Rfam assigns this 141-nucleotide RNA from Rhizobium sp. LC145 to the family "Alphaproteobacterial sRNA ar35". Rfam 15.1 lists 266 matches to the family in 153 species.

RNA sequence: AUCGGCAUUGCUGAUGAGCGCUGAAUGAAAUCGCCGCUCGCAAUUGCCGUCGUCGCUUCGACUUUUGACCACGGAUGUACUGGCAGGAAAGAUAGCGAUGAUGAGGAAGGUCGGUGCGGUUUCGCCCCGGCCUUUUUUGUU
Numbered sequence: 001a002u003c004g005g006c007a008u009u010g011c012u013g014a015u016g017a018g019c020g021c022u023g024a025a026u027g028a029a030a031u032c033g034c035c036g037c038u039c040g041c042a043a044u045u046g047c048c049g050u051c052g053u054c055g056c057u058u059c060g061a062c063u064u065u066u067g068a069c070c071a072c073g074g075a076u077g078u079a080c081u082g083g084c085a086g087g088a089a090a091g092a093u094a095g096c097g098a099u100g101a102u103g104a105g106g107a108a109g110g111u112c113g114g115u116g117c118g119g120u121u122u123c124g125c126c127c128c129g130g131c132c133u134u135u136u137u138u139g140u141u
Stems, first nucleotide, its partner, number of pairs: 003049004007044003016039005052099006063088001066085002069083003101140014116125003
Dot-bracket structure: ..(((((((......(((((..............)))))..))).))))..((((((.....(..((.(((.........)))))..).....)))))).((((((((((((((.(((....))).)))))))))))))).